Shown here is an 86-nucleotide RNA from Pongo pygmaeus, a member of the family "mir-515 microRNA precursor family".
Gene Ontology terms of the family: miRNA-mediated post-transcriptional gene silencing and RISC complex.
The family is grouped with related families in Rfam's "mir-290 clan".
Taxonomically the source falls in Pongo (Eukaryota, Craniata, Eutheria, Haplorrhini).
The literature on the family includes a 2005 paper in Nat Genet by Bentwich et al., "Identification of hundreds of conserved and nonconserved human microRNAs".
RNA sequence: UCAGGCUGUGACCCUCUUGAGGGAAGCACUUUCUGUUGUCUGAAAAGAAAAGCAAGUGCUUCCUUUUUAUGAGGCUUACUGUCUGA
Numbered sequence: 001u002c003a004g005g006c007u008g009u010g011a012c013c014c015u016c017u018u019g020a021g022g023g024a025a026g027c028a029c030u031u032u033c034u035g036u037u038g039u040c041u042g043a044a045a046a047g048a049a050a051a052g053c054a055a056g057u058g059c060u061u062c063c064u065u066u067u068u069a070u071g072a073g074g075c076u077u078a079c080u081g082u083c084u085g086a
Stems, first nucleotide, its partner, number of pairs: 001086003005082002008079004014073003019066013033052001036051002